[Rfam]
The family of this 73-nucleotide sequence from Medicago truncatula is "MIR2629 microRNA precursor family".
RNA sequence: UACCGAGGAAUUCCUCGGCAGUUAACUGCAGCCGGAUUUCAAAUUCCUCGGCAGUUAACUGCCGAGGGAGUAU
Numbered sequence: 001u002a003c004c005g006a007g008g009a010a011u012u013c014c015u016c017g018g019c020a021g022u023u024a025a026c027u028g029c030a031g032c033c034g035g036a037u038u039u040c041a042a043a044u045u046c047c048u049c050g051g052c053a054g055u056u057a058a059c060u061g062c063c064g065a066g067g068g069a070g071u072a073u
Base pairs, nucleotide, nucleotide: 012069013068015066016064017063018062019061020060021059022058023057024056025055026054027053028052029051
Dot-bracket structure: ...........((.(((((((((((((((.....................)))))))))))))).).))....

NCBI's taxonomy places the organism under Eukaryota, Streptophyta, Embryophyta, Hologalegina, Medicago. Its family is annotated with RISC complex and miRNA-mediated post-transcriptional gene silencing in the Gene Ontology. The match comes from Rfam's covariance-model search (66 bits).